[Rfam]
RNA sequence: UCUCACACAGGGGAUGGCAUACCCCCUUGAACCGCCGUGUGGCUGAUGAUGCCUGUUUUUAU
Numbered sequence: 001u002c003u004c005a006c007a008c009a010g011g012g013g014a015u016g017g018c019a020u021a022c023c024c025c026c027u028u029g030a031a032c033c034g035c036c037g038u039g040u041g042g043c044u045g046a047u048g049a050u051g052c053c054u055g056u057u058u059u060u061a062u
Base pairs, nucleotide, nucleotide: 010026011025012024013023016053017052018051019050020049034043035042036041
The family of this 62-nucleotide sequence from Kluyvera cryocrescens is "Fluoride riboswitch aptamer (crcB RNA motif)". The family's consensus secondary structure is taken from published work.